[Rfam]
RNA sequence: UGCCUUUGUGUUGCCCAUUCAUUCCUGUCCAGAAUGAAUGUGGUGUCAAAAAAGGCAAACAGGAAUUCUUGCUCAAACUGUUUAAGGAGUGGUUAUUUACCUUUCUCCUCCCUGUUUUUGCAAGGACAAAA
Numbered sequence: 001u002g003c004c005u006u007u008g009u010g011u012u013g014c015c016c017a018u019u020c021a022u023u024c025c026u027g028u029c030c031a032g033a034a035u036g037a038a039u040g041u042g043g044u045g046u047c048a049a050a051a052a053a054g055g056c057a058a059a060c061a062g063g064a065a066u067u068c069u070u071g072c073u074c075a076a077a078c079u080g081u082u083u084a085a086g087g088a089g090u091g092g093u094u095a096u097u098u099a100c101c102u103u104u105c106u107c108c109u110c111c112c113u114g115u116u117u118u119u120g121c122a123a124g125g126a127c128a129a130a131a
Stems, first nucleotide, its partner, number of pairs: 002056006009048002012045004016040008068124004074120004085113003088109002092103001
RNA: Small nucleolar RNA SNORA13
Organism: Rynchops niger